[Rfam]
RNA sequence: GGUAAAAAUACAUACUUCUUUACAUUCCAUAGCAUCGUAUGUUCAUAUGGGUACAUAAAGAAGUAUGUACUCCUAAA
Numbered sequence: 001g002g003u004a005a006a007a008a009u010a011c012a013u014a015c016u017u018c019u020u021u022a023c024a025u026u027c028c029a030u031a032g033c034a035u036c037g038u039a040u041g042u043u044c045a046u047a048u049g050g051g052u053a054c055a056u057a058a059a060g061a062a063g064u065a066u067g068u069a070c071u072c073c074u075a076a077a
Stems, first nucleotide, its partner, number of pairs: 007071001009069014027050005
Dot-bracket structure: ......(.((((((((((((((....(((((..............))))).....)))))))))))))).)......
RNA: mir-1 microRNA precursor family